[Rfam]
RNA: Bacterial RNase P class A
Organism: Deinococcus koreensis
RNA sequence: GCGGGGGAAUGCACGGUCGCGCCUGGGCGUGAGUUCAGGUGAGGAAAGUCCGGGCACCGCAGGGCAGGAUGCCAGCUAACGGCUGGUCGGCGAGUCGAGCGUCCGCGUGAGCGCCAUCACGCGCGGGAAGCGGCGAAGCCGAAGGACAGUGCCACAGAAACCAGACCGCCAGUGCCACCCAGUCCGGGCGCGGACGGCACUGGUCAGGGUGAAACGGUGCGGUAAGAGCGCACCAGGCCGCGUGGAGACACGGGGCGUCUGGUAAACCCCAUCCGGUGCAAGACCCGACAGUGCGCGAGGGCGGCCCGCCCGUUGACCGCCAGGAUGGUCGCAUGAGGCGCCCUGGCAACAGGCGUCCCAGAGAGAUGACCGCGCAGCCACGCAAGUGGUGGACAGAACCCGGCUUACAGUUCCCCCGCACCA
Numbered sequence: 001g002c003g004g005g006g007g008a009a010u011g012c013a014c015g016g017u018c019g020c021g022c023c024u025g026g027g028c029g030u031g032a033g034u035u036c037a038g039g040u041g042a043g044g045a046a047a048g049u050c051c052g053g054g055c056a057c058c059g060c061a062g063g064g065c066a067g068g069a070u071g072c073c074a075g076c077u078a079a080c081g082g083c084u085g086g087u088c089g090g091c092g093a094g095u096c097g098a099g100c101g102u103c104c105g106c107g108u109g110a111g112c113g114c115c116a117u118c119a120c121g122c123g124c125g126g127g128a129a130g131c132g133g134c135g136a137a138g139c140c141g142a143a144g145g146a147c148a149g150u151g152c153c154a155c156a157g158a159a160a161c162c163a164g165a166c167c168g169c170c171a172g173u174g175c176c177a178c179c180c181a182g183u184c185c186g187g188g189c190g191c192g193g194a195c196g197g198c199a200c201u202g203g204u205c206a207g208g209g210u211g212a213a214a215c216g217g218u219g220c221g222g223u224a225a226g227a228g229c230g231c232a233c234c235a236g237g238c239c240g241c242g243u244g245g246a247g248a249c250a251c252g253g254g255g256c257g258u259c260u261g262g263u264a265a266a267c268c269c270c271a272u273c274c275g276g277u278g279c280a281a282g283a284c285c286c287g288a289c290a291g292u293g294c295g296c297g298a299g300g301g302c303g304g305c306c307c308g309c310c311c312g313u314u315g316a317c318c319g320c321c322a323g324g325a326u327g328g329u330c331g332c333a334u335g336a337g338g339c340g341c342c343c344u345g346g347c348a349a350c351a352g353g354c355g356u357c358c359c360a361g362a363g364a365g366a367u368g369a370c371c372g373c374g375c376a377g378c379c380a381c382g383c384a385a386g387u388g389g390u391g392g393a394c395a396g397a398a399c400c401c402g403g404c405u406u407a408c409a410g411u412u413c414c415c416c417c418g419c420a421c422c423a
Stems, first nucleotide, its partner, number of pairs: 001419010011408001012374001014372005020041009046406003050403005055278004062307004067274005072086005087143001088141004144269002149267002151263003166208002168204009216234006236258001237256003241252004282330004293320003299311004337357004342353004